[Rfam]
RNA sequence: AUUGCAAGUUUGAGGCCAUAGCUAACAUGCUCAUAGCAUGGCCUGUCAGGUUCUAAUGAAACUGGAAAUUCUGCU
Numbered sequence: 001a002u003u004g005c006a007a008g009u010u011u012g013a014g015g016c017c018a019u020a021g022c023u024a025a026c027a028u029g030c031u032c033a034u035a036g037c038a039u040g041g042c043c044u045g046u047c048a049g050g051u052u053c054u055a056a057u058g059a060a061a062c063u064g065g066a067a068a069u070u071c072u073g074c075u
Base pairs, nucleotide, nucleotide: 014043015042016041017040020075021074022073025070027039028038029037047064048063049062051060052059053058
Mammalian CPEB3 ribozyme: a 75-nucleotide RNA sequence from Crocodylus porosus. The family's consensus secondary structure is taken from published work. On this family, see Salehi-Ashtiani et al., Science 2006: "A genomewide search for ribozymes reveals an HDV-like sequence in the human CPEB3 gene". Lineage of the source: Eukaryota > Chordata > Amniota > Longirostres > Crocodylus.